RNA: ivy-DE RNA
RNA sequence: UGACCAGGGGGCCGGGCUGCUCUGAUUGCUACAGGAUCGGAGGGGCCUAGGGGUACAGGGAGUACCUCCUUCAUGGGCCGGGUCAGGGUGGUA
Numbered sequence: 001u002g003a004c005c006a007g008g009g010g011g012c013c014g015g016g017c018u019g020c021u022c023u024g025a026u027u028g029c030u031a032c033a034g035g036a037u038c039g040g041a042g043g044g045g046c047c048u049a050g051g052g053g054u055a056c057a058g059g060g061a062g063u064a065c066c067u068c069c070u071u072c073a074u075g076g077g078c079c080g081g082g083u084c085a086g087g088g089u090g091g092u093a
Stems, first nucleotide, its partner, number of pairs: 001085005010079004014048005020042008050068007